A member of the RNA family "Mammalian CPEB3 ribozyme" from Alligator mississippiensis, 76 nucleotides long. Taxonomically the source falls in Alligator (Eukaryota, Metazoa, Deuterostomia, Archosauria). The base pairs follow the family's consensus structure, which is taken from published work.

[Rfam]
RNA sequence: CUUGCAUGUAAUGGCUAUAGCAGAAAUGUUCACAACAUGGCCCCUGUCAGAUUCCAAUGAAUCUGAAGAUUCUGCU
Numbered sequence: 001c002u003u004g005c006a007u008g009u010a011a012u013g014g015c016u017a018u019a020g021c022a023g024a025a026a027u028g029u030u031c032a033c034a035a036c037a038u039g040g041c042c043c044c045u046g047u048c049a050g051a052u053u054c055c056a057a058u059g060a061a062u063c064u065g066a067a068g069a070u071u072c073u074g075c076u
Stems, first nucleotide, its partner, number of pairs: 013042004019076007026038003048065007
Dot-bracket structure: ............[[[[..((((((((((.......)))]]]].....(((((((....)))))))....)))))))